This 179-nucleotide RNA sequence from Sphingomonas sp. AP4-R1 belongs to the Rfam family "Manganese Mn2+ riboswitch aptamer (yybP-ykoY)". Rfam's curators write: This RNA was originally discovered in E. coli during a large scale screen and was named SraF. The family was later found to exist upstream of related families of protein genes in many bacteria, including the the yybP and ykoK genes in B. subtilis. The specific functions of these proteins are unknown, but this structured RNA element may be involved in their genetic regulation as a riboswitch. The literature on the family includes a 2001 paper in Curr Biol by Argaman et al., "Novel small RNA-encoding genes in the intergenic regions of Escherichia coli". Lineage of the source: Bacteria > Pseudomonadati > Pseudomonadota > Sphingomonadaceae > Sphingomonas. Pairs were carried over by alignment from the consensus structure.
RNA sequence: CCAUCCCUUGGGGAGUAGCCGCCCGACGAUACGGGGCGCACGUCAACAGACUUGGGCUCGGAGCGAACCGCUCCUUGAACAUGGCGUGCGCGGCAAUUGCUUGGCGAGACCAUGGAUCGGUAGGCGCUCGGGCCGGGCGCAGGCCGGUUCAUGCGCGUCUCCGGCCCUUGGGGAAAUUC
Numbered sequence: 001c002c003a004u005c006c007c008u009u010g011g012g013g014a015g016u017a018g019c020c021g022c023c024c025g026a027c028g029a030u031a032c033g034g035g036g037c038g039c040a041c042g043u044c045a046a047c048a049g050a051c052u053u054g055g056g057c058u059c060g061g062a063g064c065g066a067a068c069c070g071c072u073c074c075u076u077g078a079a080c081a082u083g084g085c086g087u088g089c090g091c092g093g094c095a096a097u098u099g100c101u102u103g104g105c106g107a108g109a110c111c112a113u114g115g116a117u118c119g120g121u122a123g124g125c126g127c128u129c130g131g132g133c134c135g136g137g138c139g140c141a142g143g144c145c146g147g148u149u150c151a152u153g154c155g156c157g158u159c160u161c162c163g164g165c166c167c168u169u170g171g172g173g174a175a176a177u178u179c
Base pairs, nucleotide, nucleotide: 023034024033025032036091037090038089039088040087041086042085043084044083045082053081054080095178096177097176098175
Dot-bracket structure: ......................(((......))).((((((((((.......((.........................))))))))))))...((((............................................................................)))).